[Rfam]
RNA sequence: CUCUCACCAACAACCUGUGCCAGUUCUCCCGCCCGUCCUCCGGGGCGUGGCUGGUUGAGAAUAUGGCAGUUCGUCCGUUCCAUGGAGCCAUCUUCCUUUUAUAGAUUGUUUCGGACGACAGGCUGAAGAGUGAGUCGGCACGUGCCAGAAGCCUGAGUUCACCGCAAGGUUUGAACUCGGUGGAAGGCGCGUCGCCAGGCGGACUAAUUCCUGUUCCCUUCUGCUAGGCCGUCGGCCCAUAAUGCUUGGGACAAACCUAGUCGGCUACAUGC
Numbered sequence: 001c002u003c004u005c006a007c008c009a010a011c012a013a014c015c016u017g018u019g020c021c022a023g024u025u026c027u028c029c030c031g032c033c034c035g036u037c038c039u040c041c042g043g044g045g046c047g048u049g050g051c052u053g054g055u056u057g058a059g060a061a062u063a064u065g066g067c068a069g070u071u072c073g074u075c076c077g078u079u080c081c082a083u084g085g086a087g088c089c090a091u092c093u094u095c096c097u098u099u100u101a102u103a104g105a106u107u108g109u110u111u112c113g114g115a116c117g118a119c120a121g122g123c124u125g126a127a128g129a130g131u132g133a134g135u136c137g138g139c140a141c142g143u144g145c146c147a148g149a150a151g152c153c154u155g156a157g158u159u160c161a162c163c164g165c166a167a168g169g170u171u172u173g174a175a176c177u178c179g180g181u182g183g184a185a186g187g188c189g190c191g192u193c194g195c196c197a198g199g200c201g202g203a204c205u206a207a208u209u210c211c212u213g214u215u216c217c218c219u220u221c222u223g224c225u226a227g228g229c230c231g232u233c234g235g236c237c238c239a240u241a242a243u244g245c246u247u248g249g250g251a252c253a254a255a256c257c258u259a260g261u262c263g264g265c266u267a268c269a270u271g272c
Stems, first nucleotide, its partner, number of pairs: 011125002014122005019067004023062001025060004029054002031051003034047002037044002076117005085111001087109002136194001140192006153180009162169002199265002202262005215251004223245002227237004
Dot-bracket structure: ..........((.((((((((((.(((((((((((.((....)).)).))).))..)))).).))))........(((((....(.((...................)).).)))))))))).))..........(...((((((.......(((((((((((....))..)))))))))......)))))).)....((.(((((........((((....((..((((...))))......))..))))......))))).)).......
RNA: A. fumigatus sRNA Afu_309